[Rfam]
RNA sequence: CUUAAAGAAUUUUUCUAUCUAUAGAUAGAGAAUUUUCUUAUUUAGACUUUGUGUCUACUCUUCUCAACUAAACGAAAUUUUUCUAGUGCUGUCAUUUGUUAUGGCAGUCCUAGUGUAAUUGAAAUUUCGUCAAGUUUGUAAACUGGUUAGGCAAGUGUUGUAUUUUCUGUGUCUAAGCACUGGUGAUUCUGUUCACUAGUGCAUACAUUGAUAUUUAAGUGGUGUUCCGUCACUGCUUAUUGUGGAAGCAACGUUCUGUCGUUGUGGAAACCAAUAACUGCUAACCAUGUUUUACAAUCAAGUGACACUUGCUGUUGCAA
Numbered sequence: 001c002u003u004a005a006a007g008a009a010u011u012u013u014u015c016u017a018u019c020u021a022u023a024g025a026u027a028g029a030g031a032a033u034u035u036u037c038u039u040a041u042u043u044a045g046a047c048u049u050u051g052u053g054u055c056u057a058c059u060c061u062u063c064u065c066a067a068c069u070a071a072a073c074g075a076a077a078u079u080u081u082u083c084u085a086g087u088g089c090u091g092u093c094a095u096u097u098g099u100u101a102u103g104g105c106a107g108u109c110c111u112a113g114u115g116u117a118a119u120u121g122a123a124a125u126u127u128c129g130u131c132a133a134g135u136u137u138g139u140a141a142a143c144u145g146g147u148u149a150g151g152c153a154a155g156u157g158u159u160g161u162a163u164u165u166u167c168u169g170u171g172u173c174u175a176a177g178c179a180c181u182g183g184u185g186a187u188u189c190u191g192u193u194c195a196c197u198a199g200u201g202c203a204u205a206c207a208u209u210g211a212u213a214u215u216u217a218a219g220u221g222g223u224g225u226u227c228c229g230u231c232a233c234u235g236c237u238u239a240u241u242g243u244g245g246a247a248g249c250a251a252c253g254u255u256c257u258g259u260c261g262u263u264g265u266g267g268a269a270a271c272c273a274a275u276a277a278c279u280g281c282u283a284a285c286c287a288u289g290u291u292u293u294a295c296a297a298u299c300a301a302g303u304g305a306c307a308c309u310u311g312c313u314g315u316u317g318c319a320a
Base pairs, nucleotide, nucleotide: 005039006038007037008036009035011032012031014029015028016027017026018025019024043057044056045055046054047053074128075127076126077125078124079123080122082115083113084112085111086110089107090106091105092104093103094102095101136297137296138295144287145286146285147284148283149282151281152280154279155278156276157275158274159273160272170207171206172205179200180199181198182197183196184195185194186193217238218237219236220235221234222233223232224231242271243270248265249264250263251262252261253260
Shown here is a 320-nucleotide sequence from Alphacoronavirus amsterdamense, a member of the family "Alphacoronavirus 5'UTR". Lineage of the source: Viruses > Coronaviridae > Orthocoronavirinae > Setracovirus > Alphacoronavirus amsterdamense. Rfam's curators put it in the seed alignment. For this family Rfam cites "Coronavirus cis-Acting RNA Elements" (Madhugiri et al., Adv Virus Res, 2016). Gene Ontology term of the family: viral RNA genome replication. Rfam describes the family as follows. The first 150 to 200 nucleotides within the 5' UTR of alphacoronaviruses are highly structured and shown to be conserved on the structural level among alphacoronaviruses. The 5' UTR has been predicted to contain 3 conserved stem-loops: SL1, SL2 and SL4. SL1 is important for viral replication, most likely playing a role in the template-switch of viral subgenomic RNA transcription.